[Rfam]
RNA sequence: UGGACUUGCUUCAUCCAACGGAUCGUCGGGCACGUACCUGCCCGGAGAAGGAAGAGAGA
Numbered sequence: 001u002g003g004a005c006u007u008g009c010u011u012c013a014u015c016c017a018a019c020g021g022a023u024c025g026u027c028g029g030g031c032a033c034g035u036a037c038c039u040g041c042c043c044g045g046a047g048a049a050g051g052a053a054g055a056g057a058g059a
Stems, first nucleotide, its partner, number of pairs: 009051003014046002027044006
Dot-bracket structure: ........(((..((...........((((((......))))))))..)))........
RNA: msiK RNA